MIR5387 microRNA precursor family: a 94-nucleotide RNA from Sorghum bicolor. NCBI's taxonomy places the organism under Eukaryota, Streptophytina, Spermatophyta, Poaceae, Sorghum. A search with the family's covariance model found it, with a score of 85 bits.
RNA sequence: UCGUACCACGAACCGGUGCUAAAGGGUCCUGCCCAACGGCUACUGACAGGUGCUGUCUGGGCAGGGACCCUUUAGCACCGGUUCUUGUUACUGA
Numbered sequence: 001u002c003g004u005a006c007c008a009c010g011a012a013c014c015g016g017u018g019c020u021a022a023a024g025g026g027u028c029c030u031g032c033c034c035a036a037c038g039g040c041u042a043c044u045g046a047c048a049g050g051u052g053c054u055g056u057c058u059g060g061g062c063a064g065g066g067a068c069c070c071u072u073u074a075g076c077a078c079c080g081g082u083u084c085u086u087g088u089u090a091c092u093g094a
Stems, first nucleotide, its partner, number of pairs: 003091003007087002010084018029065002032060002036056002043049002